[Rfam]
This 108-nucleotide RNA sequence from Steinernema carpocapsae belongs to the Rfam family "U5 spliceosomal RNA". Rfam 15.1 lists 28,527 matches to the family in 2,489 species. By type it is a spliceosomal small nuclear RNA. The family's consensus secondary structure is taken from published work. A reference for the family is Zwieb (1997), "The uRNA database", Nucleic Acids Res.
RNA sequence: AGCAACCUCGGCGCAAUCGACCGAAAAAUUCUUUCGCCUUUUACUAAAGAAUUCCAUGCGCCGACUCACUUUAUGAGUUUCUCAAUUUUGGGAGUCUCGAUCGACUCC
Dot-bracket structure: ...(...((((((((...........((((((((...........))))))))...)))))))).).........................(((((......))))).
Numbered sequence: 001a002g003c004a005a006c007c008u009c010g011g012c013g014c015a016a017u018c019g020a021c022c023g024a025a026a027a028a029u030u031c032u033u034u035c036g037c038c039u040u041u042u043a044c045u046a047a048a049g050a051a052u053u054c055c056a057u058g059c060g061c062c063g064a065c066u067c068a069c070u071u072u073a074u075g076a077g078u079u080u081c082u083c084a085a086u087u088u089u090g091g092g093a094g095u096c097u098c099g100a101u102c103g104a105c106u107c108c
Stems, first nucleotide, its partner, number of pairs: 004066001008064008027053008092107005